[Rfam]
RNA: purD RNA motif
RNA sequence: GUAGUCUCUUAGUGUGUGGAUGUUUUCGUUUGAGCUUGACUUGGUCAGCGAGGGAUCAUCCCCUAAAGAGAGACUCUCUCCUACACCGUUGGCUAUAUAGGGCCGACUUGACACAGAACGCUCGCCCGGGU
Numbered sequence: 001g002u003a004g005u006c007u008c009u010u011a012g013u014g015u016g017u018g019g020a021u022g023u024u025u026u027c028g029u030u031u032g033a034g035c036u037u038g039a040c041u042u043g044g045u046c047a048g049c050g051a052g053g054g055a056u057c058a059u060c061c062c063c064u065a066a067a068g069a070g071a072g073a074c075u076c077u078c079u080c081c082u083a084c085a086c087c088g089u090u091g092g093c094u095a096u097a098u099a100g101g102g103c104c105g106a107c108u109u110g111a112c113a114c115a116g117a118a119c120g121c122u123c124g125c126c127c128g129g130g131u
Stems, first nucleotide, its partner, number of pairs: 003075007018061005024055004034049003089106006